[Rfam]
This 54-nucleotide sequence belongs to the Rfam family "Glutamine riboswitch aptamer (glnA leader)". Its family is annotated with glutamine binding in the Gene Ontology. Pairs were carried over by alignment from the consensus structure, which is taken from published work.
RNA sequence: AACGUUCAUCUUUUAAUAAAAGACGGAAGUAGGUUAGAACCGAAGGAACGCAUU
Numbered sequence: 001a002a003c004g005u006u007c008a009u010c011u012u013u014u015a016a017u018a019a020a021a022g023a024c025g026g027a028a029g030u031a032g033g034u035u036a037g038a039a040c041c042g043a044a045g046g047a048a049c050g051c052a053u054u
Stems, first nucleotide, its partner, number of pairs: 003050005009023005026051001032041003